[Rfam]
Rfam assigns this 266-nucleotide RNA sequence from Medicago truncatula to the family "MIR2655 microRNA precursor family". Lineage of the source: Eukaryota > Streptophyta > Euphyllophyta > Magnoliopsida > Medicago. The sequence is in the family's curated seed alignment. The family's consensus secondary structure was predicted with RNAalifold. Gene Ontology terms of the family: RISC complex and miRNA-mediated post-transcriptional gene silencing.
RNA sequence: CUCAUAAGUAAUAAAAGGUUCGUUUAGGUCCCUUAACUUUAUUUUAAGUAUCGGUUUAAUCAUUUAUGUUAAUUUAAUUCAAAAAAGCGUUAAGUUUAGGGACGAAACUAAUACUAAUUAAAUAAGUUAAGGGACCAAUCUAACACUAAUUAAAUAAGUUAAGGGACCAAAACUUGCCGUUUUUUGAAUUAAAUUAAUAGAAAAGAUCAAACCGAUACUUUAAAUAAAAUUAAAGGACCUAAACGAACUUUUUAUUACUUAUGGGA
Numbered sequence: 001c002u003c004a005u006a007a008g009u010a011a012u013a014a015a016a017g018g019u020u021c022g023u024u025u026a027g028g029u030c031c032c033u034u035a036a037c038u039u040u041a042u043u044u045u046a047a048g049u050a051u052c053g054g055u056u057u058a059a060u061c062a063u064u065u066a067u068g069u070u071a072a073u074u075u076a077a078u079u080c081a082a083a084a085a086a087g088c089g090u091u092a093a094g095u096u097u098a099g100g101g102a103c104g105a106a107a108c109u110a111a112u113a114c115u116a117a118u119u120a121a122a123u124a125a126g127u128u129a130a131g132g133g134a135c136c137a138a139u140c141u142a143a144c145a146c147u148a149a150u151u152a153a154a155u156a157a158g159u160u161a162a163g164g165g166a167c168c169a170a171a172a173c174u175u176g177c178c179g180u181u182u183u184u185u186g187a188a189u190u191a192a193a194u195u196a197a198u199a200g201a202a203a204a205g206a207u208c209a210a211a212c213c214g215a216u217a218c219u220u221u222a223a224a225u226a227a228a229a230u231u232a233a234a235g236g237a238c239c240u241a242a243a244c245g246a247a248c249u250u251u252u253u254a255u256u257a258c259u260u261a262u263g264g265g266a
Base pairs, nucleotide, nucleotide: 002264003263004262005261006260007259008258023243024242025241027239028238029237031235033233034232035231036230038228039227040226041225042224043223046220047219